Description
The record is a 292-nucleotide sequence from Sciurus vulgaris, which matches "Mason-Pfizer monkey virus packaging signal" in Rfam. The family has 9 seed sequences and 2,921 matches in Rfam 15.1. About the family: This family represents a group of sequences that are related to the Mason-Pfizer monkey virus (MPMV) packaging signal. The packaging signal is located in the 5' UTR and is required for specific RNA encapsidation. The base pairs follow the family's consensus structure, which was predicted with PFOLD.
RNA sequence: UGGCGCCCAGUGGUGUGGCUUCGGAUACGGGGGAAUUCGCGAGGGAAGAGGCGUGUAAGUGUUCCGCCGAAGAAGAAAAAAAAAGUGAAAGUGAAAGUCAGUUCGACAAAGAUCGCCGCGGGAGCCUGCCGCUCCGUUCUUAAAGGUACAGUAGUGCCUAACUAUGGGACAAGAAUUAAGUAAGCAUAAAGUUUUUGUUAAGCAAUUAAAAGAAGCUUUAAAGACACGGGAGUAAAGGUUAAGAGUAAUGAUCUUUUUAAGUUUUUUGACCUUAUUAAGAACACCUGUCCGU
Numbered sequence: 001u002g003g004c005g006c007c008c009a010g011u012g013g014u015g016u017g018g019c020u021u022c023g024g025a026u027a028c029g030g031g032g033g034a035a036u037u038c039g040c041g042a043g044g045g046a047a048g049a050g051g052c053g054u055g056u057a058a059g060u061g062u063u064c065c066g067c068c069g070a071a072g073a074a075g076a077a078a079a080a081a082a083a084a085g086u087g088a089a090a091g092u093g094a095a096a097g098u099c100a101g102u103u104c105g106a107c108a109a110a111g112a113u114c115g116c117c118g119c120g121g122g123a124g125c126c127u128g129c130c131g132c133u134c135c136g137u138u139c140u141u142a143a144a145g146g147u148a149c150a151g152u153a154g155u156g157c158c159u160a161a162c163u164a165u166g167g168g169a170c171a172a173g174a175a176u177u178a179a180g181u182a183a184g185c186a187u188a189a190a191g192u193u194u195u196u197g198u199u200a201a202g203c204a205a206u207u208a209a210a211a212g213a214a215g216c217u218u219u220a221a222a223g224a225c226a227c228g229g230g231a232g233u234a235a236a237g238g239u240u241a242a243g244a245g246u247a248a249u250g251a252u253c254u255u256u257u258u259a260a261g262u263u264u265u266u267u268g269a270c271c272u273u274a275u276u277a278a279g280a281a282c283a284c285c286u287g288u289c290c291g292u
Stems, first nucleotide, its partner, number of pairs: 006033003013028003038050001040048001098146002102143002112138001114136001118132004152172001154170002157168004177220003180216002227268003230264004236254006277292001279290001281288002